[Rfam]
RNA: Group II catalytic intron D1-D4-1
RNA sequence: AAACUGGUCGAAUAAGGUUUAUCGUGAGAAGUCAGCAGAAACCAUAGUAAUGACAAAAGUCAUGAAGGGU
Numbered sequence: 001a002a003a004c005u006g007g008u009c010g011a012a013u014a015a016g017g018u019u020u021a022u023c024g025u026g027a028g029a030a031g032u033c034a035g036c037a038g039a040a041a042c043c044a045u046a047g048u049a050a051u052g053a054c055a056a057a058a059g060u061c062a063u064g065a066a067g068g069g070u
Stems, first nucleotide, its partner, number of pairs: 001019002004016002007013002032039002041070003050063005